The record is a 99-nucleotide sequence from Eubacterium sp. CAG:202, which matches "Bacterial small signal recognition particle RNA" in Rfam. Clan: SRP clan. The base pairs follow the family's consensus structure, which is taken from published work. The family's RNA type in Rfam is non-coding RNA gene. Rfam describes the family as follows. The signal recognition particle (SRP) is a universally conserved ribonucleoprotein involved in the co-translational targeting of proteins to membranes. Lineage of the source: Bacteria > Bacillota > Eubacteriales > Eubacteriaceae > Eubacterium.
[Rfam]
RNA sequence: CGGCAGGCCCUGUACGAUUGGGGUCUGUGAAUCAUGUCAGGCGGGGAACCGAGCAGCAUUAAGCAGUAUUGCCGAUGCGAUGCAGUAAGUCUGUCGUUC
Numbered sequence: 001c002g003g004c005a006g007g008c009c010c011u012g013u014a015c016g017a018u019u020g021g022g023g024u025c026u027g028u029g030a031a032u033c034a035u036g037u038c039a040g041g042c043g044g045g046g047a048a049c050c051g052a053g054c055a056g057c058a059u060u061a062a063g064c065a066g067u068a069u070u071g072c073c074g075a076u077g078c079g080a081u082g083c084a085g086u087a088a089g090u091c092u093g094u095c096g097u098u099c
Stems, first nucleotide, its partner, number of pairs: 004093005010085005015077001017076005025066004034059004042051003
Dot-bracket structure: ...(((((.((((((.(((((...((((.....((((....(((....)))....))))...)))).....))))))...)))))...)))))......